[Rfam]
RNA sequence: UAGAGCCGCUAGGCCCGUCUCUACGGAGAUGACCGGAGCAUGUCCGGUGCGCACGAAGCUCCCUCGCAGUGCGCGGCGCUUAUGGCACAGAC
Numbered sequence: 001u002a003g004a005g006c007c008g009c010u011a012g013g014c015c016c017g018u019c020u021c022u023a024c025g026g027a028g029a030u031g032a033c034c035g036g037a038g039c040a041u042g043u044c045c046g047g048u049g050c051g052c053a054c055g056a057a058g059c060u061c062c063c064u065c066g067c068a069g070u071g072c073g074c075g076g077c078g079c080u081u082a083u084g085g086c087a088c089a090g091a092c
Stems, first nucleotide, its partner, number of pairs: 005086003013077003016042001018029003032048004049074006
Dot-bracket structure: ....(((.....((([.(((......)))..((((......]..))))((((((..............)))))))))......)))......
RNA: Twister_sister_ribozyme